[Rfam]
This 339-nucleotide part of an RNA from Encephalitozoon hellem belongs to the Rfam family "Microsporidia small subunit ribosomal RNA".
RNA sequence: CAGUUAAAAUGUCCGUAGUUGUUUGUAUGUCUUUUGAGUGAUGUUUAUGGUUUUUAGUGGAUGUAGUUUUAUUGUAGCAGAGGACGAGGGGCACUGGAUAGUUGGGCGAGGGGUGAAAUACGAAGACCCUGACUGGACGAAGAGAAGCGAAGGCUGUGUUCUUGGACUUUUGUGGUGAUGAAGGACGAAGGCUAGAGGAUCGAAAUCGAUUAGAUACCGUUUUAGUUCUAGCAGUAAACGAUGCCGACUGGACGGGACUGUUUUAGUGUUGUCCGAGAGAAAUCUUAAGUAUGUGGGUUCUGGGGAUAGUAUGCUCGCAAGAGUGAAACUUGAAGAGAU
Numbered sequence: 001c002a003g004u005u006a007a008a009a010u011g012u013c014c015g016u017a018g019u020u021g022u023u024u025g026u027a028u029g030u031c032u033u034u035u036g037a038g039u040g041a042u043g044u045u046u047a048u049g050g051u052u053u054u055u056a057g058u059g060g061a062u063g064u065a066g067u068u069u070u071a072u073u074g075u076a077g078c079a080g081a082g083g084a085c086g087a088g089g090g091g092c093a094c095u096g097g098a099u100a101g102u103u104g105g106g107c108g109a110g111g112g113g114u115g116a117a118a119u120a121c122g123a124a125g126a127c128c129c130u131g132a133c134u135g136g137a138c139g140a141a142g143a144g145a146a147g148c149g150a151a152g153g154c155u156g157u158g159u160u161c162u163u164g165g166a167c168u169u170u171u172g173u174g175g176u177g178a179u180g181a182a183g184g185a186c187g188a189a190g191g192c193u194a195g196a197g198g199a200u201c202g203a204a205a206u207c208g209a210u211u212a213g214a215u216a217c218c219g220u221u222u223u224a225g226u227u228c229u230a231g232c233a234g235u236a237a238a239c240g241a242u243g244c245c246g247a248c249u250g251g252a253c254g255g256g257a258c259u260g261u262u263u264u265a266g267u268g269u270u271g272u273c274c275g276a277g278a279g280a281a282a283u284c285u286u287a288a289g290u291a292u293g294u295g296g297g298u299u300c301u302g303g304g305g306a307u308a309g310u311a312u313g314c315u316c317g318c319a320a321g322a323g324u325g326a327a328a329c330u331u332g333a334a335g336a337g338a339u
Stems, first nucleotide, its partner, number of pairs: 001302003011186004018179003077173003080169003085164001088162007095139002099135008110121001112119001144155001147154002191232006201225001205221001207219002243298003247290002250274006257267003277284002304331002313324004
The family's consensus secondary structure is taken from published work. It is one of the family's seed sequences.